mir-2392 microRNA precursor family: an 84-nucleotide RNA sequence from Pan troglodytes. Lineage of the source: Eukaryota > Euteleostomi > Primates > Simiiformes > Pan. Rfam 15.1 lists 17 matches to the family in 17 species.

RNA sequence: AUGGUCCCUCCCAAUCCAGCCAUUCCUUGGACCAGGUGGCUCCCGAGCCACCCCAGGCUGUAGGAUGGGGGUGAGAGGUGCUAG
Dot-bracket structure: .((((.((((.((.(((..((((.((((((.((.(((((((....)))))))...))))).)))))))))))).)))).)))).